[Rfam]
RNA sequence: UGCAGCCCAGUCAAAUUCGGUCCCUGUCCCUGUCCCGUGGCGGGGACCGGCCACCGGCUGCCACAGUGACCCCCCCGUGCCCACCAGCCCCGUGUCCCCUCCCGUGGGGCCCGGGGGGUGGAUCCACUGGGGACAUGG
Number, nucleotide and partner (000 for none) at each position: 001u000002g061003c060004a059005g058006c000007c000008c000009a000010g000011u000012c000013a000014a000015a000016u000017u000018c049019g048020g047021u046022c045023c044024c043025u042026g041027u040028c039029c000030c000031u000032g000033u000034c000035c000036c000037g000038u000039g028040g027041c026042g025043g024044g023045g022046a021047c020048c019049g018050g000051c000052c000053a000054c000055c000056g000057g000058c005059u004060g003061c002062c000063a000064c000065a000066g000067u000068g000069a000070c000071c000072c000073c000074c130075c129076c000077g127078u126079g125080c000081c000082c000083a000084c000085c000086a000087g000088c116089c115090c114091c113092g112093u000094g000095u000096c000097c000098c000099c000100u000101c000102c000103c000104g000105u000106g000107g000108g000109g000110c000111c000112c092113g091114g090115g089116g088117g000118g000119u000120g000121g000122a000123u000124c000125c079126a078127c077128u000129g075130g074131g000132g000133a000134c000135a000136u000137g000138g000